RNA sequence: AGCUCAUCGAGAGGGGCAGAGGGACACGGCCCGCUGAAGCCCCGGCAACCGCCGCACGACCUCCCGGAUCCCGUCCGGACUGGUGCGGAAGUGGUGCUACAUCCGUCCCGCGCCGAGAGUCGGCCCGGGGAAGAUGAGAA
Numbered sequence: 001a002g003c004u005c006a007u008c009g010a011g012a013g014g015g016g017c018a019g020a021g022g023g024a025c026a027c028g029g030c031c032c033g034c035u036g037a038a039g040c041c042c043c044g045g046c047a048a049c050c051g052c053c054g055c056a057c058g059a060c061c062u063c064c065c066g067g068a069u070c071c072c073g074u075c076c077g078g079a080c081u082g083g084u085g086c087g088g089a090a091g092u093g094g095u096g097c098u099a100c101a102u103c104c105g106u107c108c109c110g111c112g113c114c115g116a117g118a119g120u121c122g123g124c125c126c127g128g129g130g131a132a133g134a135u136g137a138g139a140a
Base pairs, nucleotide, nucleotide: 003138004137005136006135007134008133013043014042015041016040017039021032022031023030026106027105028104029103044098045097046096047095049094050093051092052091102132107129108128109127110126112124113123114122115121

The family of this 140-nucleotide RNA sequence from Marmoricola sp. Leaf446 is "SAM riboswitch aptamer (S box leader)". Lineage of the source: Bacteria > Actinomycetota > Actinomycetes > Nocardioidaceae > Marmoricola.